[Rfam]
RNA sequence: CAGGGAAAGAAGACCCUAUUGAGCUUAACUCUAGUUUAAUAUUAUAAAAAGACAUAGGGGGUGUAGAAUAGGUGGGAGCUUCAGCGCCAGUGAAAUACCACUACCCUUAUUGUUUUUUUACUUAUUCAAUAAAGCGGAGCUGGGCCUCACUGCCCAACUUCUAGCGUCAAGGUCCUUCGCGGGCCGAUCCGGGUCGAAGACAUUGUCAGGUGGGGAGUUUGGCUGGGGCGGCACAUCUGUUAAACCAUAACACAGGUAUCCUAAGGGGGACUCAUAGAGAACAGAAAUCUCCAGUAGAGCAAAAGGGCAAAAGUCCCCUUGAUUUUGAUUUUCAGUGUGAAUACAAACCAUGAAAGUGUAGCCUAUCAAUCCUUUAGUCCCUCAAAAUUUAAGGCUAGAGGUGCCAGAAAAGUUACCACAGGGAUAACUGGCUUGUAGCAGCCAAGCGUUCAUAGCAACAUUGCUUUUUAAUCCUUCAAUGUCGGCUCUUCCUAUCAUACCGAAGCAGAAUUCGGUAAGCGUUGGAUUGUUCACCCACUAAUAGGGAACGUAAGCUGGGUUUAGACCAUCAUAAGACAGGUUAGUUUUACCCUA
Numbered sequence: 001c002a003g004g005g006a007a008a009g010a011a012g013a014c015c016c017u018a019u020u021g022a023g024c025u026u027a028a029c030u031c032u033a034g035u036u037u038a039a040u041a042u043u044a045u046a047a048a049a050a051g052a053c054a055u056a057g058g059g060g061g062u063g064u065a066g067a068a069u070a071g072g073u074g075g076g077a078g079c080u081u082c083a084g085c086g087c088c089a090g091u092g093a094a095a096u097a098c099c100a101c102u103a104c105c106c107u108u109a110u111u112g113u114u115u116u117u118u119u120a121c122u123u124a125u126u127c128a129a130u131a132a133a134g135c136g137g138a139g140c141u142g143g144g145c146c147u148c149a150c151u152g153c154c155c156a157a158c159u160u161c162u163a164g165c166g167u168c169a170a171g172g173u174c175c176u177u178c179g180c181g182g183g184c185c186g187a188u189c190c191g192g193g194u195c196g197a198a199g200a201c202a203u204u205g206u207c208a209g210g211u212g213g214g215g216a217g218u219u220u221g222g223c224u225g226g227g228g229c230g231g232c233a234c235a236u237c238u239g240u241u242a243a244a245c246c247a248u249a250a251c252a253c254a255g256g257u258a259u260c261c262u263a264a265g266g267g268g269g270a271c272u273c274a275u276a277g278a279g280a281a282c283a284g285a286a287a288u289c290u291c292c293a294g295u296a297g298a299g300c301a302a303a304a305g306g307g308c309a310a311a312a313g314u315c316c317c318c319u320u321g322a323u324u325u326u327g328a329u330u331u332u333c334a335g336u337g338u339g340a341a342u343a344c345a346a347a348c349c350a351u352g353a354a355a356g357u358g359u360a361g362c363c364u365a366u367c368a369a370u371c372c373u374u375u376a377g378u379c380c381c382u383c384a385a386a387a388u389u390u391a392a393g394g395c396u397a398g399a400g401g402u403g404c405c406a407g408a409a410a411a412g413u414u415a416c417c418a419c420a421g422g423g424a425u426a427a428c429u430g431g432c433u434u435g436u437a438g439c440a441g442c443c444a445a446g447c448g449u450u451c452a453u454a455g456c457a458a459c460a461u462u463g464c465u466u467u468u469u470a471a472u473c474c475u476u477c478a479a480u481g482u483c484g485g486c487u488c489u490u491c492c493u494a495u496c497a498u499a500c501c502g503a504a505g506c507a508g509a510a511u512u513c514g515g516u517a518a519g520c521g522u523u524g525g526a527u528u529g530u531u532c533a534c535c536c537a538c539u540a541a542u543a544g545g546g547a548a549c550g551u552a553a554g555c556u557g558g559g560u561u562u563a564g565a566c567c568a569u570c571a572u573a574a575g576a577c578a579g580g581u582u583a584g585u586u587u588u589a590c591c592c593u594a
Stems, first nucleotide, its partner, number of pairs: 003593003007588002015422003020418002022414005028218004035210003039206003045120009054110007071102005078085002125198003129194001135191004143154003171185005221234001222232003235257006260361001266318006272298002275293001277291004299308002323347003328342004349358003372400006380394003431472001433470001435469001437465005446456002483558001484556004488550001489547005496521001499516006523537003527533001564582004569576002